[Rfam]
RNA sequence: AUAGAAGAGGUUCGAAAACUCCCUCUAUAAAAAACUAAACAGGA
Number, nucleotide and partner (000 for none) at each position: 001a000002u000003a000004g000005a000006a026007g025008a024009g023010g022011u000012u000013c000014g000015a000016a036017a000018a000019c000020u000021c000022c010023c009024u008025c007026u006027a000028u000029a000030a000031a000032a000033a000034a000035c000036u016037a000038a000039a000040c000041a000042g000043g000044a000
The record is a 44-nucleotide RNA sequence from Shouchella lonarensis, which matches "PreQ1 (pre queuosine) riboswitch aptamer" in Rfam. Rfam's curators write: This family is a bacterial riboswitch that binds to the metabolite preQ1, an intermediate in the biosynthesis of the modified nucleoside queuosine from GTP. One example of this riboswitch is located in the leader of the Bacillus subtilis ykvJKLM (queCDEF) operon which encodes four genes necessary for queuosine production. PreQ1 binding to the riboswitch aptamer is thought to induce premature transcription termination within the leader to down-regulate expression of these genes. On this family, see Reader et al., J Biol Chem 2004: "Identification of four genes necessary for biosynthesis of the modified nucleoside queuosine". The family has 43 seed sequences and 873 matches in Rfam 15.1.